[Rfam]
RNA sequence: GCCCAGAUCGUCUAGUUGGUUAGGAUGAUACGUUGUGGUUCUUCUAUACAGCGAUCCGUAUUGACGGCGGUUCGAAUCCGCCUCUGGGCA
Numbered sequence: 001g002c003c004c005a006g007a008u009c010g011u012c013u014a015g016u017u018g019g020u021u022a023g024g025a026u027g028a029u030a031c032g033u034u035g036u037g038g039u040u041c042u043u044c045u046a047u048a049c050a051g052c053g054a055u056c057c058g059u060a061u062u063g064a065c066g067g068c069g070g071u072u073c074g075a076a077u078c079c080g081c082c083u084c085u086g087g088g089c090a
Base pairs, nucleotide, nucleotide: 001089002088003087004086005085006084007083010026011025012024013023028061029060030059031058032057066082067081068080069079070078
RNA: tRNA
Organism: Colletotrichum shisoi